[Rfam]
The record is a 170-nucleotide RNA sequence from Ureibacillus manganicus, which matches "glmS glucosamine-6-phosphate activated ribozyme aptamer" in Rfam. Rfam links the family to the GO terms catalytic activity and regulation of gene expression. Rfam describes the family as follows. This entry contains a glucosamine-6-phosphate activated ribozyme that is found in the mRNA for GlmS. GlmS is an enzyme that uses fructose-6-phosphate and glutamine to generate glucosamine-6-phosphate. The organism belongs to Ureibacillus manganicus, within Bacteria.

RNA sequence: AAAACAAUUAUAGCGCCUGAGCUAAGGAAAUCGGACGGUCUAUCAUCCUUAGUUGACGAGGUGGAGGUUAUCGAAAUUUCGGCGGAUGCCUCCCGAUCGAAUGCCCGGUCGUAAUUUCGUUUGAAAACAUAAAAGUGAUUUUAUGGACAAAGAAACGAAAAGGCAAAUAC
Numbered sequence: 001a002a003a004a005c006a007a008u009u010a011u012a013g014c015g016c017c018u019g020a021g022c023u024a025a026g027g028a029a030a031u032c033g034g035a036c037g038g039u040c041u042a043u044c045a046u047c048c049u050u051a052g053u054u055g056a057c058g059a060g061g062u063g064g065a066g067g068u069u070a071u072c073g074a075a076a077u078u079u080c081g082g083c084g085g086a087u088g089c090c091u092c093c094c095g096a097u098c099g100a101a102u103g104c105c106c107g108g109u110c111g112u113a114a115u116u117u118c119g120u121u122u123g124a125a126a127a128c129a130u131a132a133a134a135g136u137g138a139u140u141u142u143a144u145g146g147a148c149a150a151a152g153a154a155a156c157g158a159a160a161a162g163g164c165a166a167a168u169a170c
Stems, first nucleotide, its partner, number of pairs: 020054008029046001063093005071082004094111006115160007128145007